[Rfam]
The family of this 59-nucleotide RNA is "Rothia-sucC RNA". It is annotated as a cis-regulatory element.
RNA sequence: GCUCCUCUAAUGACCAGGCCGAGUGCACCAGUACUCGGCACCACUUCGAAGAAGAAGGA
Numbered sequence: 001g002c003u004c005c006u007c008u009a010a011u012g013a014c015c016a017g018g019c020c021g022a023g024u025g026c027a028c029c030a031g032u033a034c035u036c037g038g039c040a041c042c043a044c045u046u047c048g049a050a051g052a053a054g055a056a057g058g059a
Stems, first nucleotide, its partner, number of pairs: 018039009

Annotation
The family's consensus secondary structure is taken from published work.